[Rfam]
RNA sequence: UCGUCAGUGAGGUUAAUCCUUACCUGUUCCUCCUCCGGGAGAAACAGCACAUGAUGAAUGGAGGAGGCUGAGUUGCUGAUUACUCUGUACUCCGAUUUUGUCUGAUGCGACAACACUAUUCAGGCAGAGUCAUUCUGAU
Numbered sequence: 001u002c003g004u005c006a007g008u009g010a011g012g013u014u015a016a017u018c019c020u021u022a023c024c025u026g027u028u029c030c031u032c033c034u035c036c037g038g039g040a041g042a043a044a045c046a047g048c049a050c051a052u053g054a055u056g057a058a059u060g061g062a063g064g065a066g067g068c069u070g071a072g073u074u075g076c077u078g079a080u081u082a083c084u085c086u087g088u089a090c091u092c093c094g095a096u097u098u099u100g101u102c103u104g105a106u107g108c109g110a111c112a113a114c115a116c117u118a119u120u121c122a123g124g125c126a127g128a129g130u131c132a133u134u135c136u137g138a139u
Stems, first nucleotide, its partner, number of pairs: 024047003028043001030041004070092002074089003077082001097128009
Overview:
Rfam assigns this 139-nucleotide RNA sequence from Xenopus tropicalis to the family "U8 small nucleolar RNA". Lineage of the source: Eukaryota > Eumetazoa > Chordata > Craniata > Silurana. The match comes from Rfam's covariance-model search (82 bits). The family's RNA type in Rfam is C/D-box small nucleolar RNA.